[Rfam]
The family of this 124-nucleotide RNA sequence is "LOOT RNA".
By type it is a small RNA.

RNA sequence: AGUCUAACCCUUAAAAAAGACUUUUUUAAGGUAUGACUAAAAUACCAAUCACGAAUAAAGAACUCCUCGUCAGGGUUCCGUGAUUGGUCAUAUGGGGAAACCUAUAUGUGAGCCGAAAGGCUCU
Numbered sequence: 001a002g003u004c005u006a007a008c009c010c011u012u013a014a015a016a017a018a019g020a021c022u023u024u025u026u027u028a029a030g031g032u033a034u035g036a037c038u039a040a041a042a043u044a045c046c047a048a049u050c051a052c053g054a055a056u057a058a059a060g061a062a063c064u065c066c067u068c069g070u071c072a073g074g075g076u077u078c079c080g081u082g083a084u085u086g087g088u089c090a091u092a093u094g095g096g097g098a099a100a101c102c103u104a105u106a107u108g109u110g111a112g113c114c115g116a117a118a119g120g121c122u123c124u
Stems, first nucleotide, its partner, number of pairs: 001038004009031010045087009060078006089108008110123005